[Rfam]
RNA sequence: GCGAGGUGCAGAGCUUAGCUGAUUGGUGAACAGUGAUUGUUGUUGCUUUGUUCACAGUGGCUAAGUUCUGCACCUGAA
Numbered sequence: 001g002c003g004a005g006g007u008g009c010a011g012a013g014c015u016u017a018g019c020u021g022a023u024u025g026g027u028g029a030a031c032a033g034u035g036a037u038u039g040u041u042g043u044u045g046c047u048u049u050g051u052u053c054a055c056a057g058u059g060g061c062u063a064a065g066u067u068c069u070g071c072a073c074c075u076g077a078a
Stems, first nucleotide, its partner, number of pairs: 011068010026055007